[Rfam]
RNA sequence: GUCCCGUUCCCCCAGUGUUCAGACUACGUGUUCGUUGGACAGAACCUGAACAGUAGUCUACACACUGGUUAAACUGGGCC
Numbered sequence: 001g002u003c004c005c006g007u008u009c010c011c012c013c014a015g016u017g018u019u020c021a022g023a024c025u026a027c028g029u030g031u032u033c034g035u036u037g038g039a040c041a042g043a044a045c046c047u048g049a050a051c052a053g054u055a056g057u058c059u060a061c062a063c064a065c066u067g068g069u070u071a072a073a074c075u076g077g078g079c080c
Base pairs, nucleotide, nucleotide: 012068013067014066015065016064017063018062021059022058023057024056025055026054029052030051031050033048034047
Rfam assigns this 80-nucleotide RNA from Xenopus tropicalis to the family "mir-199 microRNA precursor family". This family consists of the microRNA (miRNA) precursor mir-199 which appears to be specific to humans. Animal miRNAs are transcribed as ~70nt precursors and subsequently processed by the Dicer enzyme to give a ~22nt product. In this case the mature sequence comes from the 3' arm of the precursor. The extents of the hairpin precursors are not generally known and are estimated based on hairpin prediction. A reference for the family is Ambros (2001), "microRNAs: tiny regulators with great potential", Cell. Taxonomically the source falls in Silurana (Eukaryota, Chordata, Craniata, Pipidae). It is one of the family's seed sequences.